Overview:
Shown here is a 132-nucleotide sequence from Trifolium subterraneum, a member of the family "mir-393 microRNA precursor family". A search with the family's covariance model found it, with a score of 87 bits. For this family Rfam cites "Role of microRNAs and other sRNAs of plants in their changing environments" (Kruszka et al., J Plant Physiol, 2012).
RNA sequence: GAAGUAGGCAUCCAAAGGGAUCGCAUUGAUCCUAAAUUUCAGCAUUAAUAUAUGCUCUCUUUAAUUAAUUUCCAUCAUAUAUACAUAUGAUUUAUUUAAUUGGGAUCAUGCCAUCUCUUUGGAUUUCUCCUU
Numbered sequence: 001g002a003a004g005u006a007g008g009c010a011u012c013c014a015a016a017g018g019g020a021u022c023g024c025a026u027u028g029a030u031c032c033u034a035a036a037u038u039u040c041a042g043c044a045u046u047a048a049u050a051u052a053u054g055c056u057c058u059c060u061u062u063a064a065u066u067a068a069u070u071u072c073c074a075u076c077a078u079a080u081a082u083a084c085a086u087a088u089g090a091u092u093u094a095u096u097u098a099a100u101u102g103g104g105a106u107c108a109u110g111c112c113a114u115c116u117c118u119u120u121g122g123a124u125u126u127c128u129c130c131u132u
Base pairs, nucleotide, nucleotide: 002132003131004130006128008126010124011123012122013121014120015119016118017117018116019115020114021113023111024110025109026108028107029106030105031104032103036100037099038098